[Rfam]
RNA sequence: UGAGUAAGACAAAUGGUCGCUGCCGCAGAAACGAAAGGCUGCGGGAGAGGAAAGUCCGGGCUUCACAGGGCAGGGUGCCAGAUAACGUCUGGCGGAGGUGACUCCAGGGACAGUGCAACAGAAAUAUACCGCCGGCUUUGCCGGUAAGGGUGGAAGGGCAGUGUAAGAGACUACCGCCCGUCUGGUAACAGACGGGGCACAUGUAAACCCCACUUGAAGCAAGACCGAACAGAAAGCAUAAGGCGGCCCGUCUGCUUUCGGGUAGGUUGCUUGAACCAGGUGGUGACAUCUGGUCUAGAUAGAUGACCAUUCAACGACAUAACCCGGCUUAUCGUCUUGCUCAUAAC
Numbered sequence: 001u002g003a004g005u006a007a008g009a010c011a012a013a014u015g016g017u018c019g020c021u022g023c024c025g026c027a028g029a030a031a032c033g034a035a036a037g038g039c040u041g042c043g044g045g046a047g048a049g050g051a052a053a054g055u056c057c058g059g060g061c062u063u064c065a066c067a068g069g070g071c072a073g074g075g076u077g078c079c080a081g082a083u084a085a086c087g088u089c090u091g092g093c094g095g096a097g098g099u100g101a102c103u104c105c106a107g108g109g110a111c112a113g114u115g116c117a118a119c120a121g122a123a124a125u126a127u128a129c130c131g132c133c134g135g136c137u138u139u140g141c142c143g144g145u146a147a148g149g150g151u152g153g154a155a156g157g158g159c160a161g162u163g164u165a166a167g168a169g170a171c172u173a174c175c176g177c178c179c180g181u182c183u184g185g186u187a188a189c190a191g192a193c194g195g196g197g198c199a200c201a202u203g204u205a206a207a208c209c210c211c212a213c214u215u216g217a218a219g220c221a222a223g224a225c226c227g228a229a230c231a232g233a234a235a236g237c238a239u240a241a242g243g244c245g246g247c248c249c250g251u252c253u254g255c256u257u258u259c260g261g262g263u264a265g266g267u268u269g270c271u272u273g274a275a276c277c278a279g280g281u282g283g284u285g286a287c288a289u290c291u292g293g294u295c296u297a298g299a300u301a302g303a304u305g306a307c308c309a310u311u312c313a314a315c316g317a318c319a320u321a322a323c324c325c326g327g328c329u330u331a332u333c334g335u336c337u338u339g340c341u342c343a344u345a346a347c
Stems, first nucleotide, its partner, number of pairs: 001343010011332001012311007020047002023044006052330003056327005061219004068249004073215005078092005093107001094105004108210002113208002115204003129149002131145006157175002160172003176198001177196008223268004232259006241253004275294008
A member of the RNA family "Bacterial RNase P class A" from Clostridium sp. AM33-3, 347 nucleotides long. Pairs were carried over by alignment from the consensus structure, which is taken from published work. A search with the family's covariance model found it, with a score of 312 bits. About the family: Ribonuclease P (RNase P) is a ubiquitous endoribonuclease, found in archaea, bacteria and eukarya as well as chloroplasts and mitochondria. NCBI's taxonomy places the organism under Bacteria, Bacillati, Bacillota, Clostridiaceae, Clostridium.